The record is a 59-nucleotide RNA from Erinaceus europaeus, which matches "p27 cis-regulatory element" in Rfam. Rfam's curators write: This family represents a structured G/C rich element located in the 5' UTR of p27 mRNA. This element contributes to cell-cycle regulated translation and when deleted leads to a 50% drop in regulation. The element is thought to be able to form several different structures with similar free energy. The organism belongs to Erinaceus, within Eukaryota.
RNA sequence: CCACCUUAAGACCGCGCUCGCCAGCCCGCGCGGGGCGGCUCCCGGCGCCGCGGCCAAUG
Numbered sequence: 001c002c003a004c005c006u007u008a009a010g011a012c013c014g015c016g017c018u019c020g021c022c023a024g025c026c027c028g029c030g031c032g033g034g035g036c037g038g039c040u041c042c043c044g045g046c047g048c049c050g051c052g053g054c055c056a057a058u059g
Stems, first nucleotide, its partner, number of pairs: 010026001012024001014021002030051004034046001036044003